Lysine riboswitch aptamer: a 176-nucleotide RNA from Lysinibacillus sphaericus.
RNA sequence: UAUUGAGGUAGAGGUCGCGGUAUUUAUGAGUACGCUAAUGGAAAUGACAAGCAUUAAAGAUGUUAGCUGAAAGGAAAUAUCGCCGAAGUGUGAGGGGACUUGAAAACCUCAUGCUGGGGCUGUCUCCGAAAGGAACAGAACUGUCACGUUGGACAACGUGUUGCGCUAUCAUUUUG
Numbered sequence: 001u002a003u004u005g006a007g008g009u010a011g012a013g014g015u016c017g018c019g020g021u022a023u024u025u026a027u028g029a030g031u032a033c034g035c036u037a038a039u040g041g042a043a044a045u046g047a048c049a050a051g052c053a054u055u056a057a058a059g060a061u062g063u064u065a066g067c068u069g070a071a072a073g074g075a076a077a078u079a080u081c082g083c084c085g086a087a088g089u090g091u092g093a094g095g096g097g098a099c100u101u102g103a104a105a106a107c108c109u110c111a112u113g114c115u116g117g118g119g120c121u122g123u124c125u126c127c128g129a130a131a132g133g134a135a136c137a138g139a140a141c142u143g144u145c146a147c148g149u150u151g152g153a154c155a156a157c158g159u160g161u162u163g164c165g166c167u168a169u170c171a172u173u174u175u176g
Stems, first nucleotide, its partner, number of pairs: 007170005017083009034067007087115009116142002120138004125133002145160006
Dot-bracket structure: ......(((((.....(((((((((........(((((((....................))))))).......)))))))))...(((((((((...........)))))))))((..((((.((.....)).))))..))..((((((....)))))).....)))))......
A search with the family's covariance model found it, with a score of 113 bits.